The record is a 99-nucleotide RNA from Canis lupus, which matches "mir-8799 microRNA precursor family" in Rfam. The family has 7 seed sequences and 20,638 matches in Rfam 15.1. It scores 66 bits against the family's covariance model. The family is grouped with related families in Rfam's "mir-8791 microRNA precursor clan". Rfam links the family to the GO terms RISC complex and miRNA-mediated post-transcriptional gene silencing.

RNA sequence: GGGGGGAGGCCAGAUCCUGGGUUGUGUCCCCGGCGCCCAGGCGCCCAGUGUUCCCGGGCCUUCGCUGUUGGAUUCGCGCUCCCGGCCGCACAGCCGCCU
Dot-bracket structure: (((.((..(.(.(..((.(((.((((((.((((((....(..(((...........))))..)))))..)))..)))).))).))).)..)..)).)))